The family of this 163-nucleotide RNA sequence from Gossypium laxum is "U1 spliceosomal RNA". A search with the family's covariance model found it, with a score of 100 bits. Taxonomically the source falls in Gossypium (Eukaryota, Embryophyta, Spermatophyta, Gunneridae).

[Rfam]
RNA sequence: AUACUUACCUGGACAGGGUCGAUAGGUGAUCAUCAUGGCCGAUGGCCUAGGUAAGUGACUUCUAUUGCACUUGGGAAGGGCGCUUGCCUAAGGUCUCCUCAAAGUAGGAGAGCCUUCGUCAUACUUUGUGGCACUUGGGAAUUCUGCCUCAGCCAGAUUUAAU
Number, nucleotide and partner (000 for none) at each position: 001a000002u000003a000004c000005u000006u000007a000008c000009c000010u000011g000012g120013a119014c118015a000016g048017g047018g046019u045020c044021g043022a000023u042024a000025g040026g039027u038028g000029a000030u000031c000032a000033u000034c000035a000036u000037g000038g027039c026040c025041g000042a023043u021044g020045g019046c018047c017048u016049a089050g088051g087052u000053a000054a000055g083056u082057g081058a000059c079060u078061u077062c075063u074064a000065u000066u000067g000068c000069a000070c000071u000072u000073g000074g063075g062076a000077a061078g060079g059080g000081c057082g056083c055084u000085u000086g000087c051088c050089u049090a000091a115092g114093g113094u111095c110096u109097c000098c107099u106100c000101a000102a000103a000104g000105u000106a099107g098108g000109a096110g095111a094112g000113c093114c092115u091116u000117c000118g014119u013120c012121a000122u000123a000124c000125u000126u000127u000128g000129u000130g000131g000132c000133a000134c000135u000136u162137g000138g160139g159140a158141a000142u157143u000144c000145u000146g153147c152148c000149u000150c000151a000152g147153c146154c000155a000156g000157a142158u140159u139160u138161a000162a136163u000